The record is a 57-nucleotide RNA sequence from Streptomyces sp. HmicA12, which matches "L17-Actino-Proteobacteria ribosomal protein leader" in Rfam. The organism belongs to Streptomyces, within Bacteria. The base pairs follow the family's consensus structure, which is taken from published work.
[Rfam]
RNA sequence: CCCGCAGGCAAUCCGCCUGCGGGGCCCUGACCCCGGUACCUGAUACGGCCGGGGCAG
Numbered sequence: 001c002c003c004g005c006a007g008g009c010a011a012u013c014c015g016c017c018u019g020c021g022g023g024g025c026c027c028u029g030a031c032c033c034c035g036g037u038a039c040c041u042g043a044u045a046c047g048g049c050c051g052g053g054g055c056a057g
Stems, first nucleotide, its partner, number of pairs: 001023009027057003031054007